[Rfam]
RNA sequence: GCUGGAUAUGGUGGUUUGUGCCUGUAAUCUGAGUGCUGGUUGGGCUGAAGUUAAAGCACGGCUCGAUUCCAGGGAUUUUGGGCUGCAACAAGCUGUGCCGAGUGGGUGUCUGUGUGAAGUUUGGCGUGGAUGUGGUGAUCCUGAGGGAACUGGGGGCCACCAGGUUGCCUAAGGAAGGGGGAACUGGCCCAGGCUGAAGUGGAGCAGGUCAAAAUUCAAGUGUUGAUCCGCAGUGGGAUGGUGUAGGUGAAUAUUUCCUGUAGCACAGCCUGGGAAUGGAAAAGAAACGCAGAUUCCUUUUC
Numbered sequence: 001g002c003u004g005g006a007u008a009u010g011g012u013g014g015u016u017u018g019u020g021c022c023u024g025u026a027a028u029c030u031g032a033g034u035g036c037u038g039g040u041u042g043g044g045c046u047g048a049a050g051u052u053a054a055a056g057c058a059c060g061g062c063u064c065g066a067u068u069c070c071a072g073g074g075a076u077u078u079u080g081g082g083c084u085g086c087a088a089c090a091a092g093c094u095g096u097g098c099c100g101a102g103u104g105g106g107u108g109u110c111u112g113u114g115u116g117a118a119g120u121u122u123g124g125c126g127u128g129g130a131u132g133u134g135g136u137g138a139u140c141c142u143g144a145g146g147g148a149a150c151u152g153g154g155g156g157c158c159a160c161c162a163g164g165u166u167g168c169c170u171a172a173g174g175a176a177g178g179g180g181g182a183a184c185u186g187g188c189c190c191a192g193g194c195u196g197a198a199g200u201g202g203a204g205c206a207g208g209u210c211a212a213a214a215u216u217c218a219a220g221u222g223u224u225g226a227u228c229c230g231c232a233g234u235g236g237g238a239u240g241g242u243g244u245a246g247g248u249g250a251a252u253a254u255u256u257c258c259u260g261u262a263g264c265a266c267a268g269c270c271u272g273g274g275a276a277u278g279g280a281a282a283a284g285a286a287a288c289g290c291a292g293a294u295u296c297c298u299u300u301u302c
Stems, first nucleotide, its partner, number of pairs: 001045003004023002007020005028042001047300004053294001059289002063285002065277001067275007078268003082264006090256001092255001094253003098249001102248002106244004110237002113235003119228001121226007129166003133162005139156004144151002168174002177217003185211005194202002
RNA: Metazoan signal recognition particle RNA